RNA sequence: UGAGGCCUAUGAUGGAACAUGACAAUAUGCCUACAUUGUCUGAUCAUAUAAAACUUGAUUGAGCAACAUGAUCUGAGGCCUUG
Numbered sequence: 001u002g003a004g005g006c007c008u009a010u011g012a013u014g015g016a017a018c019a020u021g022a023c024a025a026u027a028u029g030c031c032u033a034c035a036u037u038g039u040c041u042g043a044u045c046a047u048a049u050a051a052a053a054c055u056u057g058a059u060u061g062a063g064c065a066a067c068a069u070g071a072u073c074u075g076a077g078g079c080c081u082u083g
Stems, first nucleotide, its partner, number of pairs: 001083002004080004
RNA: Small nucleolar RNA SNORD34
Organism: Nicotiana attenuata